This 102-nucleotide sequence from Planococcus rifietoensis belongs to the Rfam family "Purine riboswitch aptamer".

RNA sequence: AAUUAUAGAAUACAGUGCCCUCAUAUAUGUCCGAUGAUACGGUUCGGAUGUCUCUACCAAGUCACCGGAAAUGACUUGACUAUGAAGGCGGAUGACGCAUGC
Numbered sequence: 001a002a003u004u005a006u007a008g009a010a011u012a013c014a015g016u017g018c019c020c021u022c023a024u025a026u027a028u029g030u031c032c033g034a035u036g037a038u039a040c041g042g043u044u045c046g047g048a049u050g051u052c053u054c055u056a057c058c059a060a061g062u063c064a065c066c067g068g069a070a071a072u073g074a075c076u077u078g079a080c081u082a083u084g085a086a087g088g089c090g091g092a093u094g095a096c097g098c099a100u101g102c
Base pairs, nucleotide, nucleotide: 018088019087021085022084023083024082025081029049030048031047032046033045034044058078059077060076061075062074063073064072

The organism belongs to Planococcus, within Bacteria.